A member of the RNA family "Bacillaceae-1 RNA" from Domibacillus mangrovi, 67 nucleotides long.
The source organism's lineage runs through Bacteria, Bacilli, Caryophanales, Bacillaceae and Domibacillus.
By type it is a small RNA.

RNA sequence: CUAAGAGGAAGGCAGACUAAGAACAUCACGUCCUGUGACAACGUCUGCAUGAUUCACAUCGUGUGAA
Number, nucleotide and partner (000 for none) at each position: 001c000002u000003a000004a000005g000006a000007g000008g000009a000010a000011g000012g048013c047014a046015g045016a044017c043018u000019a000020a000021g000022a000023a000024c000025a000026u038027c037028a036029c035030g000031u000032c000033c000034u000035g029036u028037g027038a026039c000040a000041a000042c000043g017044u016045c015046u014047g013048c012049a000050u000051g000052a000053u067054u066055c065056a064057c063058a000059u000060c000061g000062u000063g057064u056065g055066a054067a053